[Rfam]
RNA sequence: UAGACAAAACCCGAAAAGCCUGUAAAAGAGUAGGAA
Numbered sequence: 001u002a003g004a005c006a007a008a009a010c011c012c013g014a015a016a017a018g019c020c021u022g023u024a025a026a027a028g029a030g031u032a033g034g035a036a
Stems, first nucleotide, its partner, number of pairs: 002021002005018001011034002
Dot-bracket structure: .((.(.....[[.....).))...........]]..